[Rfam]
RNA: transfer-messenger RNA
RNA sequence: GGGGGCGCACGGUUUCGACGGGGAAACGUAGGCCACGGGAGCAUGCCGGGGGGGUUACCCCGUUAGUAAAGCCAAAGCAUAUAAUUGCUAACGACGAAUACGCACUCGCUGCCGCUUAAGGCACGAUGUCCUCAGUUAAGACUCGCCCAUGGUCUGACUGAGGGCACAAACAACUAGUGGGAUUGCUCCUUUGAUUGUCUCGGCUCAGGGGUGAAAUUUAGGGACUGCUUCCGCCUGUAGAAUUGUCUGUGUUUCAGCAGGCGGGAAAAGACAAAUACAUAGACUAAGCAUGUAGGGCCUUUGGUUGAAAGUUCUUCGGACGUGGGUUCGAUUCCCACCGCCUCCAUUU
Numbered sequence: 001g002g003g004g005g006c007g008c009a010c011g012g013u014u015u016c017g018a019c020g021g022g023g024a025a026a027c028g029u030a031g032g033c034c035a036c037g038g039g040a041g042c043a044u045g046c047c048g049g050g051g052g053g054g055u056u057a058c059c060c061c062g063u064u065a066g067u068a069a070a071g072c073c074a075a076a077g078c079a080u081a082u083a084a085u086u087g088c089u090a091a092c093g094a095c096g097a098a099u100a101c102g103c104a105c106u107c108g109c110u111g112c113c114g115c116u117u118a119a120g121g122c123a124c125g126a127u128g129u130c131c132u133c134a135g136u137u138a139a140g141a142c143u144c145g146c147c148c149a150u151g152g153u154c155u156g157a158c159u160g161a162g163g164g165c166a167c168a169a170a171c172a173a174c175u176a177g178u179g180g181g182a183u184u185g186c187u188c189c190u191u192u193g194a195u196u197g198u199c200u201c202g203g204c205u206c207a208g209g210g211g212u213g214a215a216a217u218u219u220a221g222g223g224a225c226u227g228c229u230u231c232c233g234c235c236u237g238u239a240g241a242a243u244u245g246u247c248u249g250u251g252u253u254u255c256a257g258c259a260g261g262c263g264g265g266a267a268a269a270g271a272c273a274a275a276u277a278c279a280u281a282g283a284c285u286a287a288g289c290a291u292g293u294a295g296g297g298c299c300u301u302u303g304g305u306u307g308a309a310a311g312u313u314c315u316u317c318g319g320a321c322g323u324g325g326g327u328u329c330g331a332u333u334c335c336c337a338c339c340g341c342c343u344c345c346a347u348u349u
Stems, first nucleotide, its partner, number of pairs: 001345007019318007029308001031306005037300003042292005047062005053073004105125001108124001110123003127166010139155004146181005186213001188211007197225005229266010240254003245284004249278003322338005